[Rfam]
RNA sequence: CAUCGUAUGAUAGGGAGAAGGAGGAUUGAAAGAGACUCUGGACGAAAUACGAGAGAGAAU
Numbered sequence: 001c002a003u004c005g006u007a008u009g010a011u012a013g014g015g016a017g018a019a020g021g022a023g024g025a026u027u028g029a030a031a032g033a034g035a036c037u038c039u040g041g042a043c044g045a046a047a048u049a050c051g052a053g054a055g056a057g058a059a060u
Stems, first nucleotide, its partner, number of pairs: 001055001003052006011045001013043001020039004026033002
RNA: Bacterial large subunit ribosomal RNA, nucleotides 1452 to 1511